[Rfam]
RNA sequence: UCUGCUUUGUACCAUAAGCGAGGUAUAGAGUUCCUACUUGAUUAUUGAGUUUGUAGGAACUUCAUACCGUGCUCUUGGAGAGCUAGU
Numbered sequence: 001u002c003u004g005c006u007u008u009g010u011a012c013c014a015u016a017a018g019c020g021a022g023g024u025a026u027a028g029a030g031u032u033c034c035u036a037c038u039u040g041a042u043u044a045u046u047g048a049g050u051u052u053g054u055a056g057g058a059a060c061u062u063c064a065u066a067c068c069g070u071g072c073u074c075u076u077g078g079a080g081a082g083c084u085a086g087u
Stems, first nucleotide, its partner, number of pairs: 012078003017073004022068005028062010
RNA: mir-276 microRNA precursor family
Organism: Megaselia scalaris